[Rfam]
RNA: Small nucleolar RNA ZL1
Organism: Otolemur garnettii
RNA sequence: AGAGAAGCAAAGUGAUGAGCAGUACUGGCUGGAGCCCCAAAGAGGCACGUGUGUGUUUGUGUGUGUCUGUGUAUAUCUGUGUUUUUGUCUGUGCGUGCACAUGUGUGUCUGGUAGUACAAAUGUGUGUGAUUGAUUAUAGGGAACUAGCUAGCUAUGUGCCUUCUCUUAGGCCAUGACAGUCAAACUGAUAAGAUCUGAUUGCUUC
Number, nucleotide and partner (000 for none) at each position: 001a000002g000003a000004g206005a205006a204007g203008c202009a201010a200011a000012g000013u000014g196015a195016u194017g000018a000019g000020c000021a000022g000023u000024a000025c000026u183027g182028g181029c180030u179031g178032g000033a000034g000035c000036c000037c112038c111039a110040a000041a108042g000043a106044g000045g104046c103047a102048c000049g100050u099051g098052u097053g096054u095055g094056u093057u000058u000059g000060u000061g089062u000063g000064u000065g000066u000067c000068u000069g000070u000071g084072u000073a082074u081075a080076u000077c000078u000079g000080u075081g074082u073083u000084u071085u000086u000087g000088u000089c061090u000091g000092u000093g056094c055095g054096u053097g052098c051099a050100c049101a000102u047103g046104u045105g000106u043107g000108u041109c000110u039111g038112g037113u000114a000115g128116u127117a126118c125119a000120a000121a000122u000123g000124u000125g118126u117127g116128u115129g000130a000131u148132u147133g146134a000135u144136u143137a000138u000139a000140g000141g000142g000143a136144a135145c000146u133147a132148g131149c000150u000151a000152g000153c000154u176155a175156u174157g173158u000159g172160c171161c170162u169163u000164c000165u000166c000167u000168u000169a162170g161171g160172c159173c157174a156175u155176g154177a000178c031179a030180g029181u028182c027183a026184a000185a000186c000187u000188g000189a000190u000191a000192a000193g000194a016195u015196c014197u000198g000199a000200u010201u009202g008203c007204u006205u005206c004